A member of the RNA family "Manganese Mn2+ riboswitch aptamer (yybP-ykoY)" from Rossellomorea marisflavi, 97 nucleotides long. Pairs were carried over by alignment from the consensus structure. About the family: This RNA was originally discovered in E. coli during a large scale screen and was named SraF. The family was later found to exist upstream of related families of protein genes in many bacteria, including the the yybP and ykoK genes in B. subtilis. The specific functions of these proteins are unknown, but this structured RNA element may be involved in their genetic regulation as a riboswitch. Rfam 15.1 lists 1,126 matches to the family in 1,062 species. The match comes from Rfam's covariance-model search (51 bits).
RNA sequence: CUACCUGUCAAAGGGGAGUAGCUAUAGGUUCACACCUAAACAAAGUCGUCAGUUCAUGGGUUACGCCCAUCGGCUUUGUUGGCAUAUCGAUUAUGCU
Numbered sequence: 001c002u003a004c005c006u007g008u009c010a011a012a013g014g015g016g017a018g019u020a021g022c023u024a025u026a027g028g029u030u031c032a033c034a035c036c037u038a039a040a041c042a043a044a045g046u047c048g049u050c051a052g053u054u055c056a057u058g059g060g061u062u063a064c065g066c067c068c069a070u071c072g073g074c075u076u077u078g079u080u081g082g083c084a085u086a087u088c089g090a091u092u093a094u095g096c097u
Stems, first nucleotide, its partner, number of pairs: 026037003039080010056070005081097006